[Rfam]
The record is a 72-nucleotide RNA sequence, which matches "HDV ribozyme from F. prausnitzii" in Rfam.

RNA sequence: GCUGCUCUAAUAAUCACACACAUCUUCGUGGUGAGUAGUGGAAACGAUUUUAUGGUCGACUGAGAUGUGAUA
Numbered sequence: 001g002c003u004g005c006u007c008u009a010a011u012a013a014u015c016a017c018a019c020a021c022a023u024c025u026u027c028g029u030g031g032u033g034a035g036u037a038g039u040g041g042a043a044a045c046g047a048u049u050u051u052a053u054g055g056u057c058g059a060c061u062g063a064g065a066u067g068u069g070a071u072a
Base pairs, nucleotide, nucleotide: 001039002038003037004036005035006034007033020032021031045058046057047056048055049054
Annotation: It is one of the family's seed sequences. For this family Rfam cites "Widespread occurrence of self-cleaving ribozymes" (Webb et al., Science, 2009).